[Rfam]
RNA: tRNA
RNA sequence: GGGGUAUUCAUCUAGUCUGGCUCAGGAUGCGACACUUCCACUGUCGUCACGAGGGUUCGAAUCCUUCAUACCUCA
Numbered sequence: 001g002g003g004g005u006a007u008u009c010a011u012c013u014a015g016u017c018u019g020g021c022u023c024a025g026g027a028u029g030c031g032a033c034a035c036u037u038c039c040a041c042u043g044u045c046g047u048c049a050c051g052a053g054g055g056u057u058c059g060a061a062u063c064c065u066u067c068a069u070a071c072c073u074c075a
Stems, first nucleotide, its partner, number of pairs: 001074007010028004030046005051067005